[Rfam]
RNA sequence: CCCCUUGACGAUGAAGACCUUGUUUAGUACAUACUUGCUGGAUUAGACGAAGACUUCGAUUCUGUUGUUAAUUUUUUCCUUGUUCGAGCAAAACCAAUUACGGUUAGCGAAUUACUGCACAUAUGUUAUCUUUUGAGU
Numbered sequence: 001c002c003c004c005u006u007g008a009c010g011a012u013g014a015a016g017a018c019c020u021u022g023u024u025u026a027g028u029a030c031a032u033a034c035u036u037g038c039u040g041g042a043u044u045a046g047a048c049g050a051a052g053a054c055u056u057c058g059a060u061u062c063u064g065u066u067g068u069u070a071a072u073u074u075u076u077u078c079c080u081u082g083u084u085c086g087a088g089c090a091a092a093a094c095c096a097a098u099u100a101c102g103g104u105u106a107g108c109g110a111a112u113u114a115c116u117g118c119a120c121a122u123a124u125g126u127u128a129u130c131u132u133u134u135g136a137g138u
Stems, first nucleotide, its partner, number of pairs: 004137005088108002091105002